[Rfam]
RNA: SAM riboswitch aptamer (S box leader)
Organism: Cytobacillus kochii
RNA sequence: AGCUUAUCCAGAGAGACUGAGGGACUAGGCCCUAUGACGUCCGGCAACCCCCAAUAUUGGGAAGGUGCCAAUUCCUGCAGAAUGAUAUCCAUUCAUUCUGAAAGAUAAGGC
Numbered sequence: 001a002g003c004u005u006a007u008c009c010a011g012a013g014a015g016a017c018u019g020a021g022g023g024a025c026u027a028g029g030c031c032c033u034a035u036g037a038c039g040u041c042c043g044g045c046a047a048c049c050c051c052c053a054a055u056a057u058u059g060g061g062a063a064g065g066u067g068c069c070a071a072u073u074c075c076u077g078c079a080g081a082a083u084g085a086u087a088u089c090c091a092u093u094c095a096u097u098c099u100g101a102a103a104g105a106u107a108a109g110g111c
Base pairs, nucleotide, nucleotide: 003109004108005107006106007105008104013042015041016040017039021032022031023030026077027076028075029074043069044068045067046066048065049064050061051060052059053058073103078100079099080098081097082096083095084094085093